[Rfam]
RNA: Potassium channel RNA editing signal
Organism: Synaphobranchus kaupii
RNA sequence: GUAGGUUAUGGUGAUAUUUAUCCGCAAACACUGCUGGGAAAGAUAGUUGGCGGACUUUGCUGCAUUGCAGGAGUGUUGGUCAUAGCCUUGCCUAUCCCCAUCAUUGUGAACAAC
Number, nucleotide and partner (000 for none) at each position: 001g114002u113003a000004g111005g000006u000007u108008a107009u106010g105011g104012u000013g102014a101015u100016a000017u000018u000019u000020a095021u094022c000023c000024g000025c000026a000027a000028a000029c000030a000031c000032u000033g000034c000035u000036g000037g077038g076039a000040a074041a000042g000043a000044u000045a000046g000047u000048u000049g063050g000051c000052g000053g000054a000055c000056u000057u000058u000059g000060c000061u000062g000063c049064a000065u000066u000067g000068c000069a000070g000071g000072a000073g000074u040075g000076u038077u037078g000079g000080u000081c000082a000083u000084a000085g000086c000087c000088u000089u000090g000091c000092c000093u000094a021095u020096c000097c000098c000099c000100a015101u014102c013103a000104u011105u010106g009107u008108g007109a000110a000111c004112a000113a002114c001